RNA sequence: AAAAACGCCCAUUAAAGGAGUAGUGCCCCAUCCGGGAACGACCUUACCGUAUUCAGAGUUU
Numbered sequence: 001a002a003a004a005a006c007g008c009c010c011a012u013u014a015a016a017g018g019a020g021u022a023g024u025g026c027c028c029c030a031u032c033c034g035g036g037a038a039c040g041a042c043c044u045u046a047c048c049g050u051a052u053u054c055a056g057a058g059u060u061u
Stems, first nucleotide, its partner, number of pairs: 017045002020042002023039002026036002
Shown here is a 61-nucleotide RNA from Leptolyngbyaceae cyanobacterium M33_DOE_097, a member of the family "Plastid-psbN 5UTR RNA". The family's consensus secondary structure was predicted with LocARNA. About the family: Plastid psbN is a non-coding RNA (ncRNA) recognised in plastids. It was reported as a conserved 11 stem-loop in the prime untranslated region (5UTR) of psbN genes. It has been reported that the motif is retained in a subset of mature transcripts in barley, which can suggests a possible role in transcript alternative 5 prime processing. On this family, see Zhelyazkova et al., Plant Cell 2012: "The primary transcriptome of barley chloroplasts: numerous noncoding RNAs and the dominating role of the plastid-encoded RNA polymerase". Taxonomically the source falls in Leptolyngbyaceae (Bacteria, Bacillati, Cyanophyceae, Leptolyngbyales). It is annotated as a cis-regulatory element.